SAM riboswitch aptamer (S box leader): a 105-nucleotide RNA from Effusibacillus dendaii. The organism belongs to Effusibacillus, within Bacteria.
Nucleotides: 105
Base pairs, nucleotide, nucleotide: 001105002104003103004102005101006100007099008098013043014042015041016040017039021032022031023030026079027078028077029076044071045070046069047068049067050066052063053062054061055060075097080094081093082092083091084090
Number, partner (000 for none) and nucleotide at each position: 001105c002104u003103u004102c005101u006100a007099u008098c009000c010000a011000g012000a013043g014042u015041g016040g017039u018000g019000g020000a021032g022031g023030g024000a025000u026079c027078u028077g029076g030023c031022c032021c033000g034000g035000c036000g037000a038000a039017a040016c041015c042014a043013c044071a045070g046069c047068a048000a049067c050066c051000g052063g053062u054061g055060u056000u057000u058000c059000a060055a061054c062053a063052c064000a065000c066050g067049g068047u069046g070045c071044u072000a073000a074000a075097u076029c077028c078027a079026g080094c081093a082092g083091g084090a085000c086000a087000a088000g089000u090084u091083u092082c093081u094080g095000g096000a097075a098008g099007a100006u101005a102004g103003g104002a105001g